[Rfam]
RNA: mir-135 microRNA precursor family
Organism: Danio rerio
RNA sequence: CAGCUGUCGUGUCUUAUGGCUUUUUAUUCCUAUGUGAAGGUGAACAAGGCUCAUGUAGGGAUACAAGCCACUAAACACGCAGUCAG
Numbered sequence: 001c002a003g004c005u006g007u008c009g010u011g012u013c014u015u016a017u018g019g020c021u022u023u024u025u026a027u028u029c030c031u032a033u034g035u036g037a038a039g040g041u042g043a044a045c046a047a048g049g050c051u052c053a054u055g056u057a058g059g060g061a062u063a064c065a066a067g068c069c070a071c072u073a074a075a076c077a078c079g080c081a082g083u084c085a086g
Stems, first nucleotide, its partner, number of pairs: 003084001005082001008079005014073001017070006026062012